A member of the RNA family "R1162-like plasmid antisense RNA" from an uncultured bacterium, 73 nucleotides long. The base pairs follow the family's consensus structure, which was predicted with PFOLD. Rfam's curators put it in the seed alignment. On this family, see Kim and Meyer, Nucleic Acids Res 1986: "Copy-number of broad host-range plasmid R1162 is regulated by a small RNA".

RNA sequence: UAGCGCUUAUGGGGUAGUGACCCCGCCAGCGCCUAACCACCAACUGCCUGCAAAGGAGGCAAUCAAUGGCUAC
Dot-bracket structure: ..((((...(((((......)))))...))))....(((.....(((((.(...).))))).....)))....
Numbered sequence: 001u002a003g004c005g006c007u008u009a010u011g012g013g014g015u016a017g018u019g020a021c022c023c024c025g026c027c028a029g030c031g032c033c034u035a036a037c038c039a040c041c042a043a044c045u046g047c048c049u050g051c052a053a054a055g056g057a058g059g060c061a062a063u064c065a066a067u068g069g070c071u072a073c
Stems, first nucleotide, its partner, number of pairs: 003032004010025005037069003045061005051055001